[Rfam]
The family of this 60-nucleotide RNA sequence from Saccharomonospora viridis is "Actino-pnp RNA".
RNA sequence: GCCGGUCCUCGGUAGUGGUCGCCGGGAACCCGUUCCCGUCGGCUUCGAUCGAUGACCGGC
Numbered sequence: 001g002c003c004g005g006u007c008c009u010c011g012g013u014a015g016u017g018g019u020c021g022c023c024g025g026g027a028a029c030c031c032g033u034u035c036c037c038g039u040c041g042g043c044u045u046c047g048a049u050c051g052a053u054g055a056c057c058g059g060c
Stems, first nucleotide, its partner, number of pairs: 001060007009052005017044005023038006
Pairs were carried over by alignment from the consensus structure, which is taken from published work.